Shown here is a 376-nucleotide sequence from Nocardioides sp. GY 10113, a member of the family "Bacterial RNase P class A". Pairs were carried over by alignment from the consensus structure, which is taken from published work. The organism belongs to Nocardioides, within Bacteria.
[Rfam]
RNA sequence: CGGGCUGGCCGGGCGACCGCGUGAUCCCUUCGGGGGUCCCGAGGAAAGUCCGGGCUCCACAGAGCAGGGUGGUGGGUAACACCCACCCGAGGUGACUCGCGGGACAGUGCCACAGAGAACAGACCGCCGGUCUCCUUCGGGAGGCAGGUAAGGGUGAAACGGUGGGGUAAGAGCCCACCAGUGCCCCGGGUGACCGGGGCAGCUCGGCAAACCCCACCCGGAGCAAGACCAGACAGUGCACGACGGUUCCGACCGAGAGGGCUGCUCGCCCGAGUGCACGGGUAGGUCGCUGGAGGCCACCGGCAACGGUGGUCGUAGAUGGAUGGUCGCCCCCUGGCAACAGGGACAGAACCCGGCUUACAGGCCAGCCCGUCCC
Numbered sequence: 001c002g003g004g005c006u007g008g009c010c011g012g013g014c015g016a017c018c019g020c021g022u023g024a025u026c027c028c029u030u031c032g033g034g035g036g037u038c039c040c041g042a043g044g045a046a047a048g049u050c051c052g053g054g055c056u057c058c059a060c061a062g063a064g065c066a067g068g069g070u071g072g073u074g075g076g077u078a079a080c081a082c083c084c085a086c087c088c089g090a091g092g093u094g095a096c097u098c099g100c101g102g103g104a105c106a107g108u109g110c111c112a113c114a115g116a117g118a119a120c121a122g123a124c125c126g127c128c129g130g131u132c133u134c135c136u137u138c139g140g141g142a143g144g145c146a147g148g149u150a151a152g153g154g155u156g157a158a159a160c161g162g163u164g165g166g167g168u169a170a171g172a173g174c175c176c177a178c179c180a181g182u183g184c185c186c187c188g189g190g191u192g193a194c195c196g197g198g199g200c201a202g203c204u205c206g207g208c209a210a211a212c213c214c215c216a217c218c219c220g221g222a223g224c225a226a227g228a229c230c231a232g233a234c235a236g237u238g239c240a241c242g243a244c245g246g247u248u249c250c251g252a253c254c255g256a257g258a259g260g261g262c263u264g265c266u267c268g269c270c271c272g273a274g275u276g277c278a279c280g281g282g283u284a285g286g287u288c289g290c291u292g293g294a295g296g297c298c299a300c301c302g303g304c305a306a307c308g309g310u311g312g313u314c315g316u317a318g319a320u321g322g323a324u325g326g327u328c329g330c331c332c333c334c335u336g337g338c339a340a341c342a343g344g345g346a347c348a349g350a351a352c353c354c355g356g357c358u359u360a361c362a363g364g365c366c367a368g369c370c371c372g373u374c375c376c
Stems, first nucleotide, its partner, number of pairs: 001372010011361001012331007020041002023038006046359003050356005055223004062267004067219005072086005087101001088099004102214002107212002109208003124153002126149003130145006161179006181203001182201008227288004236279006259271004295314008